[Rfam]
RNA: FasX small RNA
Nucleotides: 188
Stems, first nucleotide, its partner, number of pairs: 002140011016122006024114001027112005032106007051098007058090008149163006165186009
Number, partner (000 for none) and nucleotide at each position: 001000a002140u003139a004138g005137a006136u007135a008134a009133a010132g011131a012130c013000u014000g015000a016122g017121g018120u019119c020118g021117u022000u023000u024114u025000a026000a027112a028111u029110c030109a031108g032106a033105a034104a035103g036102u037101u038100a039000u040000u041000c042000c043000c044000c045000a046000a047000u048000u049000c050000a051098a052097u053096c054095a055094a056093a057092a058090u059089a060088u061087u062086g063085u064084u065083u066000u067000c068000u069000c070000u071000c072000u073000c074000c075000a076000u077000a078000a079000a080000a081000a082000c083065a084064a085063a086062u087061a088060g089059u090058a091000u092057u093056u094055u095054u096053g097052a098051u099000u100038u101037a102036g103035c104034u105033u106032u107000a108031c109030u110029g111028a112027u113000g114024g115000u116000u117021a118020c119019g120018a121017u122016u123000a124000g125000a126000a127000u128000u129000u130012g131011u132010c133009u134008u135007u136006g137005u138004u139003u140002g141000g142000a143000u144000a145000u146000g147000a148000a149163a150162c151161u152160g153159a154158u155000u156000u157000u158154a159153u160152c161151a162150g163149u164000g165186a166185a167184g168183c169182c170181u171180a172179g173178a174000u175000u176000a177000u178173u179172c180171u181170a182169g183168g184167c185166u186165u187000u188000u